[Rfam]
RNA sequence: GCAUGGAUGAAUUCUGCACUAAUCUUGAUGUAGUUUCUGCAGUCAGACACCAUGCUAAAAUAAAAAUCAACUGAGCAUAUUCAUACAUGUAUUUUGUGCUGUGUAUGCUGAUACCUCAGUGGAUUACAAAG
Numbered sequence: 001g002c003a004u005g006g007a008u009g010a011a012u013u014c015u016g017c018a019c020u021a022a023u024c025u026u027g028a029u030g031u032a033g034u035u036u037c038u039g040c041a042g043u044c045a046g047a048c049a050c051c052a053u054g055c056u057a058a059a060a061u062a063a064a065a066a067u068c069a070a071c072u073g074a075g076c077a078u079a080u081u082c083a084u085a086c087a088u089g090u091a092u093u094u095u096g097u098g099c100u101g102u103g104u105a106u107g108c109u110g111a112u113a114c115c116u117c118a119g120u121g122g123a124u125u126a127c128a129a130a131g
Stems, first nucleotide, its partner, number of pairs: 001055006014042005066124003070120006082107007
Dot-bracket structure: ((((((.......(((((...................))))).......))))))..........(((.((((((......(((((((............))))))).......)))))).))).......
The record is a 131-nucleotide RNA from Leptobrachium leishanense, which matches "Small nucleolar RNA SNORA15" in Rfam. Rfam links the family to the GO terms RNA processing and nucleolus. About the family: ACA15 is a member of the H/ACA class of snoRNA that guide the sites of modification of uridines to pseudouridines. Rfam classes the family as an H/ACA-box small nucleolar RNA. On this family, see Huttenhofer et al., EMBO J 2001: "RNomics: an experimental approach that identifies 201 candidates for novel, small, non-messenger RNAs in mouse".